[Rfam]
Record summary
Shown here is a 185-nucleotide sequence from Nostocales cyanobacterium HT-58-2, a member of the family "6S / SsrS RNA". About the family: E. coli 6S RNA was the first non coding RNA to be sequenced, but its function was unknown until recently.
RNA sequence: GUUGCACUGCGACGUUGGUGACUGCCAUAAAGUUUUUUGAUCUAUGUCUAAAAGCAAAAGGGAACCAUACAAUUUUCGUGGCAGUAGACCGGGCCAAGUAUCCGGAAACUUUAAACGAAAAACAUCGGUACCCACCUGGUUUAUCCAGGUCAUAAACUUAGGUAAAACGGCGUUGCGGUGAACUA
Number, nucleotide and partner (000 for none) at each position: 001g000002u000003u182004g000005c180006a179007c178008u177009g176010c175011g174012a173013c172014g171015u170016u000017g000018g168019u167020g000021a000022c000023u000024g000025c000026c000027a000028u000029a000030a000031a000032g000033u000034u156035u155036u154037u000038u152039g151040a150041u149042c148043u147044a000045u000046g000047u000048c000049u000050a000051a000052a000053a000054g000055c000056a000057a000058a000059a000060g133061g132062g131063a000064a129065c128066c127067a000068u000069a000070c000071a000072a000073u121074u120075u119076u118077c117078g116079u115080g000081g000082c000083a000084g109085u108086a000087g000088a000089c105090c104091g103092g102093g101094c000095c000096a000097a000098g000099u000100a000101u093102c092103c091104g090105g089106a000107a000108a085109c084110u000111u000112u000113a000114a000115a079116c078117g077118a076119a075120a074121a073122a000123c000124a000125u000126c000127g066128g065129u064130a000131c062132c061133c060134a000135c000136c000137u000138g000139g000140u000141u000142u000143a000144u000145c000146c000147a043148g042149g041150u040151c039152a038153u000154a036155a035156a034157c000158u000159u000160a000161g000162g000163u000164a000165a000166a000167a019168c018169g000170g015171c014172g013173u012174u011175g010176c009177g008178g007179u006180g005181a000182a003183c000184u000185a000
Lineage of the source: Bacteria > Bacillati > Cyanobacteriota > Cyanophyceae > Nostocales. Pairs were carried over by alignment from the consensus structure, which is taken from published work.